Rfam assigns this 274-nucleotide RNA sequence from Mycoplasma nasistruthionis to the family "Bacterial RNase P class B". Lineage of the source: Bacteria > Mollicutes > Mycoplasmatales > Mycoplasmataceae > Mycoplasma. The match comes from Rfam's covariance-model search (202 bits). Rfam describes the family as follows. Ribonuclease P (RNase P) is a ubiquitous endoribonuclease, found in archaea, bacteria and eukarya as well as chloroplasts and mitochondria. Its best characterised activity is the generation of mature 5'-ends of tRNAs by cleaving the 5'-leader elements of precursor-tRNAs. Cellular RNase Ps are ribonucleoproteins. RNA from bacterial RNase Ps retains its catalytic activity in the absence of the protein subunit, i.e. it is a ribozyme. Rfam links the family to the GO terms tRNA processing, dimeric ribonuclease P complex and ribonuclease P activity.
RNA sequence: CAGCAUUAGCUGACAGCUGCAUUAAUUUGUAGAGGAAAGUCCGUGCUAGCACUACCUGCGAUGGUAGUAGUGAUCGUGUAUAGCCUAAGAAGCUAUAGCUUAGACGACUAGUGCCACAGAGACGAGAAUUGUGAAACGGGUAAACUCCGCGAGCUAGAAACCCAAAUUUUGGUAGGGGAAUCUUAAUUACUUAAUUGAAGGUAAUUAAGGAGCGUUUUUAACGUUAGAUAAAUUGUCAGCACUGAGUAAUCAGAACAGAACACGGCUUAUUAUG
Numbered sequence: 001c002a003g004c005a006u007u008a009g010c011u012g013a014c015a016g017c018u019g020c021a022u023u024a025a026u027u028u029g030u031a032g033a034g035g036a037a038a039g040u041c042c043g044u045g046c047u048a049g050c051a052c053u054a055c056c057u058g059c060g061a062u063g064g065u066a067g068u069a070g071u072g073a074u075c076g077u078g079u080a081u082a083g084c085c086u087a088a089g090a091a092g093c094u095a096u097a098g099c100u101u102a103g104a105c106g107a108c109u110a111g112u113g114c115c116a117c118a119g120a121g122a123c124g125a126g127a128a129u130u131g132u133g134a135a136a137c138g139g140g141u142a143a144a145c146u147c148c149g150c151g152a153g154c155u156a157g158a159a160a161c162c163c164a165a166a167u168u169u170u171g172g173u174a175g176g177g178g179a180a181u182c183u184u185a186a187u188u189a190c191u192u193a194a195u196u197g198a199a200g201g202u203a204a205u206u207a208a209g210g211a212g213c214g215u216u217u218u219u220a221a222c223g224u225u226a227g228a229u230a231a232a233u234u235g236u237c238a239g240c241a242c243u244g245a246g247u248a249a250u251c252a253g254a255a256c257a258g259a260a261c262a263c264g265g266c267u268u269a270u271u272a273u274g
Stems, first nucleotide, its partner, number of pairs: 004274003008270001009240007017032005037268003041265005046157005051068006074152005079097006098105001099103001106147002111145002113141003161177003181210007211225006242253004
Dot-bracket structure: ...(((.((((((((.(((((......)))))....[[[.[[[[[(((((((((((......)))))).....(((((((((((.......))))))((...).)((...(((((.......................)))..))))))))))))))...(((...........)))...(((((((................)))))))((((((...))))))........))))))).((((....)))).......]]]]]]]].).)))